[Rfam]
RNA sequence: CUGUAUGUUUUUUAUACAGCGGCAUUACUACUUGCUUAAGAAACACCCAAUCAGCUGAAAAAAGCGGUCGGCCCUGCGUUCCGUCAGUUUACUUACCCAAAGUAACAGGUAGUAUGUAGGCCGGCUAAUUCCUCGAGCUCGGGGAA
Numbered sequence: 001c002u003g004u005a006u007g008u009u010u011u012u013u014a015u016a017c018a019g020c021g022g023c024a025u026u027a028c029u030a031c032u033u034g035c036u037u038a039a040g041a042a043a044c045a046c047c048c049a050a051u052c053a054g055c056u057g058a059a060a061a062a063a064g065c066g067g068u069c070g071g072c073c074c075u076g077c078g079u080u081c082c083g084u085c086a087g088u089u090u091a092c093u094u095a096c097c098c099a100a101a102g103u104a105a106c107a108g109g110u111a112g113u114a115u116g117u118a119g120g121c122c123g124g125c126u127a128a129u130u131c132c133u134c135g136a137g138c139u140c141g142g143g144g145a146a
Stems, first nucleotide, its partner, number of pairs: 038079001042075001046071002050068003054065002083125003087121002090118003094114003129146006